The record is a 116-nucleotide RNA, which matches "DUF3800-I RNA" in Rfam. Pairs were carried over by alignment from the consensus structure, which is taken from published work. Rfam's curators put it in the seed alignment. Rfam's curators write: Actinobacteria, Firmicutes, Fusobacteria, Proteobacteria (1 example), Tenericutes (2 examples).
Nucleotides: 116
Base pairs, nucleotide, nucleotide: 007027008026009025010024011023012021013020014019030081031080032079033078034077035076039074040073041072042051043050044049055071056070057069058068059067060066086106087105088104089103090102091101092100093099
Number, partner (000 for none) and nucleotide at each position: 001000u002000g003000a004000c005000g006000a007027u008026g009025c010024a011023g012021g013020g014019a015000g016000u017000g018000a019014u020013c021012c022000g023011c024010u025009g026008u027007a028000c029000a030081c031080u032079c033078g034077c035076a036000u037000c038000a039074c040073c041072g042051a043050a044049c045000g046000a047000a048000a049044g050043u051042u052000u053000a054000a055071g056070c057069g058068g059067c060066a061000u062000g063000u064000g065000c066060u067059g068058u069057c070056g071055c072041c073040g074039g075000c076035u077034g078033c079032g080031a081030g082000g083000a084000u085000u086106a087105a088104g089103g090102c091101c092100g093099c094000a095000a096000c097000a098000a099093g100092c101091g102090g103089c104088c105087u106086u107000u108000a109000a110000u111000u112000u113000u114000a115000g116000g